[Rfam]
RNA sequence: CAUGGAUUUAUGAUGGUUUGACUUGAAACCCACCGUGUGGAAAAGACAAACCUGAUGCAUUUGGCGUG
Numbered sequence: 001c002a003u004g005g006a007u008u009u010a011u012g013a014u015g016g017u018u019u020g021a022c023u024u025g026a027a028a029c030c031c032a033c034c035g036u037g038u039g040g041a042a043a044a045g046a047c048a049a050a051c052c053u054g055a056u057g058c059a060u061u062u063g064g065c066g067u068g
Stems, first nucleotide, its partner, number of pairs: 001068004015052006022045003030040003
About this RNA: A member of the RNA family "Selenocysteine insertion sequence 1" from Bagarius yarrelli, 68 nucleotides long. The literature on the family includes a 1996 paper in RNA by Walczak et al., "A novel RNA structural motif in the selenocysteine insertion element of eukaryotic selenoprotein mRNAs". The family's consensus secondary structure is taken from published work. A search with the family's covariance model found it, with a score of 38 bits. It is annotated as a cis-regulatory element.